[Rfam]
RNA sequence: UUGUAAAAAAGCUACACCUGUCGUGAGACGGGGCCAGAAAGCCAUGGGUCUUGCAUACUCUAUUUAUAGAUGUGGAUGAAAAGAUCGCCAGGUCACACAA
Numbered sequence: 001u002u003g004u005a006a007a008a009a010a011g012c013u014a015c016a017c018c019u020g021u022c023g024u025g026a027g028a029c030g031g032g033g034c035c036a037g038a039a040a041g042c043c044a045u046g047g048g049u050c051u052u053g054c055a056u057a058c059u060c061u062a063u064u065u066a067u068a069g070a071u072g073u074g075g076a077u078g079a080a081a082a083g084a085u086c087g088c089c090a091g092g093u094c095a096c097a098c099a100a
Stems, first nucleotide, its partner, number of pairs: 012037002017032006041093003045090003048085005
Overview
Rfam assigns this 100-nucleotide sequence from Sulfurovum sp. AR to the family "c-di-GMP-I riboswitch aptamer". The source organism's lineage runs through Bacteria, Pseudomonadati, Campylobacterales, Sulfurovaceae and Sulfurovum.